[Rfam]
RNA: U11 spliceosomal RNA
Organism: Myotis lucifugus
RNA sequence: AAUAUAGGCUUCUGUCGUGAGUGGCACACAUAGAGCAGCCUGAUUGCUCUACGUGUGGAAUCGACAUCAAGAGAUUUCGGAAGCAUAAUUUUUUGGUACUUGGGCAGCUGGUGAUCAUUGGUCCUGGUGCCCAU
Number, nucleotide and partner (000 for none) at each position: 001a000002a000003u000004a000005u000006a000007g000008g084009c083010u082011u081012c080013u026014g025015u024016c023017g022018u000019g000020a000021g000022u017023g016024g015025c014026a013027c055028a054029c053030a000031u051032a050033g049034a048035g047036c046037a045038g044039c000040c000041u000042g000043a000044u038045u037046g036047c035048u034049c033050u032051a031052c000053g029054u028055g027056u079057g078058g077059a076060a075061u074062c073063g000064a000065c000066a000067u000068c000069a000070a000071g000072a000073g062074a061075u060076u059077u058078c057079g056080g012081a011082a010083g009084c008085a000086u000087a000088a000089u000090u000091u000092u000093u000094u000095g000096g000097u000098a000099c000100u000101u000102g132103g131104g130105c129106a000107g128108c127109u126110g125111g124112u000113g123114a122115u121116c120117a000118u000119u000120g116121g115122u114123c113124c111125u110126g109127g108128u107129g105130c104131c103132c102133a000134u000